[Rfam]
Notes: The family of this 150-nucleotide sequence from Bacillus sp. FJAT-49736 is "Ribosomal protein L10 leader". NCBI's taxonomy places the organism under Bacteria, Bacillati, Bacillota, Bacilli, Bacillus. The family's RNA type in Rfam is cis-regulatory leader. Rfam's curators write: This family is a putative r-protein leader autoregulatory structure found in B. subtilis and other low-GC Gram-positive bacteria. It is located in the 5' untranslated regions of mRNAs encoding ribosomal proteins L10 and L12 (rplJ-rplL). A Rho-independent transcription terminator structure that is probably involved in regulation is included at the 3' end.

RNA sequence: AAUAGAAUAACAUUUGUACCAAAGACAGCAGGUGCUCAUUAGUAGCUUAAUUUCCUGCCGAGGUAAUGCGAUAUAUUUAUAUAGUCUUUUAAUGGCUAUAUGCAUAAAACCUCCAUGUCUUAAUAGAUCUGGGGGUUUUAUUUUGCGGUA
Numbered sequence: 001a002a003u004a005g006a007a008u009a010a011c012a013u014u015u016g017u018a019c020c021a022a023a024g025a026c027a028g029c030a031g032g033u034g035c036u037c038a039u040u041a042g043u044a045g046c047u048u049a050a051u052u053u054c055c056u057g058c059c060g061a062g063g064u065a066a067u068g069c070g071a072u073a074u075a076u077u078u079a080u081a082u083a084g085u086c087u088u089u090u091a092a093u094g095g096c097u098a099u100a101u102g103c104a105u106a107a108a109a110c111c112u113c114c115a116u117g118u119c120u121u122a123a124u125a126g127a128u129c130u131g132g133g134g135g136u137u138u139u140a141u142u143u144u145g146c147g148g149u150a
Base pairs, nucleotide, nucleotide: 028058029057030056031055032054034046035045036044110135111134112133113132114131115130117128118127119126